[Rfam]
RNA sequence: AGCUUGCCAAUGAUGUCACAAAAUAAAUGUCUGAACUGAUGAUAUCAAUGAUUUUAUUUUUUAAGAUCUUUACUAAAGCAAGCU
Dot-bracket structure: .((((((......................................................................)))))).
Numbered sequence: 001a002g003c004u005u006g007c008c009a010a011u012g013a014u015g016u017c018a019c020a021a022a023a024u025a026a027a028u029g030u031c032u033g034a035a036c037u038g039a040u041g042a043u044a045u046c047a048a049u050g051a052u053u054u055u056a057u058u059u060u061u062u063a064a065g066a067u068c069u070u071u072a073c074u075a076a077a078g079c080a081a082g083c084u
Stems, first nucleotide, its partner, number of pairs: 002083006

Small nucleolar RNA SNORD72: an 84-nucleotide sequence from Salmo trutta.
Rfam links the family to the GO terms nucleolus and RNA processing.
NCBI's taxonomy places the organism under Eukaryota, Chordata, Teleostei, Protacanthopterygii, Salmo.
The match comes from Rfam's covariance-model search (49 bits).
On this family, see Huttenhofer et al., EMBO J 2001: "RNomics: an experimental approach that identifies 201 candidates for novel, small, non-messenger RNAs in mouse".
The pairing is the family consensus, mapped onto this sequence.
snoRNA HBII-240 belongs to the CD family of snoRNAs. It is the human orthologue of the mouse MBII-240 and is predicted to guide 2'O-ribose methylation of the large 28S rRNA at residue U4590.